[Rfam]
A member of the RNA family "Small nucleolar RNA SNORD18" from Patiria miniata, 74 nucleotides long. The family's consensus secondary structure was predicted with PFOLD. Gene Ontology terms of the family: nucleolus and RNA processing. For this family Rfam cites "Two different snoRNAs are encoded in introns of amphibian and human L1 ribosomal protein genes" (Prislei et al., Nucleic Acids Res, 1993).
RNA sequence: GAGAUAUGAUGAAUAUUUUAUAAAUUGGUUCCGUGUUUCUGAGUAACCAUUGACGAUCUUCAAGUUCUGAUCUC
Number, nucleotide and partner (000 for none) at each position: 001g074002a073003g072004a071005u000006a000007u000008g000009a000010u000011g000012a000013a000014u000015a000016u000017u000018u000019u000020a000021u000022a000023a000024a000025u000026u000027g000028g000029u000030u000031c000032c000033g000034u000035g000036u000037u000038u000039c000040u000041g000042a000043g000044u000045a000046a000047c000048c000049a000050u000051u000052g000053a000054c000055g000056a000057u000058c000059u000060u000061c000062a000063a000064g000065u000066u000067c000068u000069g000070a000071u004072c003073u002074c001
Clan: SNORD18 clan.